[Rfam]
RNA sequence: AUGUGAAAAAGGCAAACUUGUUGAAAAAUAAGGACGCAAAGCCACGGGUCUAAGGUGCAAUGCACUAUGAUAGCCGGGUUGCCAAA
Numbered sequence: 001a002u003g004u005g006a007a008a009a010a011g012g013c014a015a016a017c018u019u020g021u022u023g024a025a026a027a028a029u030a031a032g033g034a035c036g037c038a039a040a041g042c043c044a045c046g047g048g049u050c051u052a053a054g055g056u057g058c059a060a061u062g063c064a065c066u067a068u069g070a071u072a073g074c075c076g077g078g079u080u081g082c083c084a085a086a
Base pairs, nucleotide, nucleotide: 012037013036017032018031019030020029021028022027040080041079042078043077045076046075047074048071049070050069055065056064057063058062
The record is an 86-nucleotide RNA from Bacillus sp. V59.32b, which matches "c-di-GMP-I riboswitch aptamer" in Rfam. The source organism's lineage runs through Bacteria, Bacillota, Bacilli, Caryophanales and Bacillus. From the family's description: GEMM was predicted in a large-scale screen for bacterial structured RNA regulatory elements.